[Rfam]
Nucleotides: 171
Stems, first nucleotide, its partner, number of pairs: 005167006017029003031151002033140002035070004065138002073116002120136005142154003
Number, partner (000 for none) and nucleotide at each position: 001000g002000c003000g004000a005167a006166u007165u008164c009163u010162c011000a012000g013000g014000g015000c016000g017029g018028g019027g020000c021000g022000a023000a024000a025000u026000u027019c028018c029017c030000c031151a032150c033140c034139g035070g036069c037068g038067g039000u040000a041000a042000a043000u044000c045000a046000a047000g048000u049000u050000g051000a052000a053000g054000u055000g056000a057000c058000u059000u060000g061000a062000u063000c064000a065138g066137c067038c068037c069036g070035c071000g072000a073116g074115c075000g076000c077000u078000u079000a080000c081000u082000u083000g084000a085000a086000c087000a088000c089000a090000u091000a092000a093000c094000u095000c096000a097000a098000g099000u100000a101000u102000u103000c104000a105000a106000g107000u108000a109000a110000g111000g112000u113000c114000a115074g116073c117000a118000g119000a120136u121135c122134u123133g124132g125000u126000g127000a128000a129000a130000a131000c132124c133123c134122a135121g136120a137066g138065c139034c140033g141000a142154c143153g144152g145000u146000c147000a148000u149000a150032g151031u152144c153143c154142g155000g156000a157000u158000g159000a160000a161000a162010g163009a164008g165007g166006a167005u168000c169000a170000g171000u
FMN riboswitch aptamer (RFN element): a 171-nucleotide sequence from Photobacterium jeanii. The base pairs follow the family's consensus structure, which is taken from published work.